A member of the RNA family "mir-375 microRNA precursor family" from Aedes aegypti, 90 nucleotides long. Taxonomically the source falls in Stegomyia (Eukaryota, Opisthokonta, Protostomia, Aparaglossata). On this family, see Chen et al., Genes Dev 2005: "The developmental miRNA profiles of zebrafish as determined by small RNA cloning". The base pairs follow the family's consensus structure, which was predicted with RNAalifold.
[Rfam]
RNA sequence: AGUUACUUAAGCCCAACGUACAGAAACUUGAAUCUGAAUGCCGUUCUAGAUUGGCUUGCUAGAAGUUUGUUCGUUUGGCUCGAGUUAUGC
Numbered sequence: 001a002g003u004u005a006c007u008u009a010a011g012c013c014c015a016a017c018g019u020a021c022a023g024a025a026a027c028u029u030g031a032a033u034c035u036g037a038a039u040g041c042c043g044u045u046c047u048a049g050a051u052u053g054g055c056u057u058g059c060u061a062g063a064a065g066u067u068u069g070u071u072c073g074u075u076u077g078g079c080u081c082g083a084g085u086u087a088u089g090c
Base pairs, nucleotide, nucleotide: 002088003087005085006084007083008082010080011079012078013077017073018072020070021069022068023067027065028064